RNA: Peptidase-S11 RNA
RNA sequence: CUUAUUAUGCCGAGGCCAGCCCCCGUCACACUGACGGGAAGCGGCGUGUGCUUGUCACACCUGAAUAACCAGCCGUUAAGU
Numbered sequence: 001c002u003u004a005u006u007a008u009g010c011c012g013a014g015g016c017c018a019g020c021c022c023c024c025g026u027c028a029c030a031c032u033g034a035c036g037g038g039a040a041g042c043g044g045c046g047u048g049u050g051c052u053u054g055u056c057a058c059a060c061c062u063g064a065a066u067a068a069c070c071a072g073c074c075g076u077u078a079a080g081u
Stems, first nucleotide, its partner, number of pairs: 015045003019042002022038006046060005